This 96-nucleotide sequence from a Bathymodiolus azoricus thioautotrophic gill symbiont belongs to the Rfam family "Bacterial small signal recognition particle RNA". From the family's description: The signal recognition particle (SRP) is a universally conserved ribonucleoprotein involved in the co-translational targeting of proteins to membranes. Its Rfam clan is "SRP clan". Rfam classes the family as a non-coding RNA gene.
[Rfam]
RNA sequence: UCAGGGUGCACUGACAAUAAAUAAUUAUGAACCCCGCCAGGUCCGGAAGGAAGCAACGGUAAUAAUUUUUUUAUGUGUUGGAUGUUAUUCUGGCAC
Numbered sequence: 001u002c003a004g005g006g007u008g009c010a011c012u013g014a015c016a017a018u019a020a021a022u023a024a025u026u027a028u029g030a031a032c033c034c035c036g037c038c039a040g041g042u043c044c045g046g047a048a049g050g051a052a053g054c055a056a057c058g059g060u061a062a063u064a065a066u067u068u069u070u071u072u073a074u075g076u077g078u079u080g081g082a083u084g085u086u087a088u089u090c091u092g093g094c095a096c
Stems, first nucleotide, its partner, number of pairs: 004090005011081004015075001017074005023067006034059003042051003